About this RNA
A member of the RNA family "Y RNA-like" from Lacipirellula limnantheis, 134 nucleotides long. Taxonomically the source falls in Lacipirellula (Bacteria, Planctomycetota, Planctomycetia, Lacipirellulaceae). For this family Rfam cites "An RNA degradation machine sculpted by Ro autoantigen and noncoding RNA" (Chen et al., Cell, 2013). Pairs were carried over by alignment from the consensus structure, which is taken from published work. Rfam classes the family as a small RNA. It scores 70 bits against the family's covariance model.
RNA sequence: AUAGCGAAUGCAGAAGGAACUACAUCACCCUGACGGGCGUGGGUUCGAGUCCCAUCGGCUAAGUCGCUCACGCGGCGGCCGUAGCUCAGUUGGUUAGAGCAUCAGACUGUUUCUUCGACCUUUGUCGCUAUUCU
Numbered sequence: 001a002u003a004g005c006g007a008a009u010g011c012a013g014a015a016g017g018a019a020c021u022a023c024a025u026c027a028c029c030c031u032g033a034c035g036g037g038c039g040u041g042g043g044u045u046c047g048a049g050u051c052c053c054a055u056c057g058g059c060u061a062a063g064u065c066g067c068u069c070a071c072g073c074g075g076c077g078g079c080c081g082u083a084g085c086u087c088a089g090u091u092g093g094u095u096a097g098a099g100c101a102u103c104a105g106a107c108u109g110u111u112u113c114u115u116c117g118a119c120c121u122u123u124g125u126c127g128c129u130a131u132u133c134u
Stems, first nucleotide, its partner, number of pairs: 002130006013116007023105001032103002039055005056081004084100004